A member of the RNA family "Pseudomonas sRNA P11" from Pseudomonas sp. TTU2014-080ASC, 137 nucleotides long. A search with the family's covariance model found it, with a score of 112 bits. The source organism's lineage runs through Bacteria, Pseudomonadati, Gammaproteobacteria, Pseudomonadaceae and Pseudomonas. The family's RNA type in Rfam is non-coding RNA gene. A reference for the family is Livny et al. (2006), "Identification of 17 Pseudomonas aeruginosa sRNAs and prediction of sRNA-encoding genes in 10 diverse pathogens using the bioinformatic tool sRNAPredict2", Nucleic Acids Res.
RNA sequence: CUGCCUUGCAGUUGGCACACUCUCUGCUUUAAGCACUGCACAAGUUUAAAAAUGUGGCCGUCAACGACGAUGGCUGUAUUUCCCGAGAUAACGGGACCUGGACAAAGGCGUCCUCGCUAGGUGACUGGCGGGACGCC
Numbered sequence: 001c002u003g004c005c006u007u008g009c010a011g012u013u014g015g016c017a018c019a020c021u022c023u024c025u026g027c028u029u030u031a032a033g034c035a036c037u038g039c040a041c042a043a044g045u046u047u048a049a050a051a052a053u054g055u056g057g058c059c060g061u062c063a064a065c066g067a068c069g070a071u072g073g074c075u076g077u078a079u080u081u082c083c084c085g086a087g088a089u090a091a092c093g094g095g096a097c098c099u100g101g102a103c104a105a106a107g108g109c110g111u112c113c114u115c116g117c118u119a120g121g122u123g124a125c126u127g128g129c130g131g132g133a134c135g136c137c
Base pairs, nucleotide, nucleotide: 012105013104014103015027016026017025052079053078054077055076056075058073059072061070062069081096082095083094084093085092107137108136109135110134111133112132113131115130116129117128118127119126120125
About the family: This small RNA (sRNA) was computationally identified in the genome of the opportunistic pathogen Pseudomonas aeruginosa and its expression verified by northern blot analysis. P11 is located between a putative threonine protein kinase and putative nitrate reductase and appears to be conserved in several Pseudomonas species. P11 has a predicted Rho independent terminator at the 3'end but the function of P11 is unknown.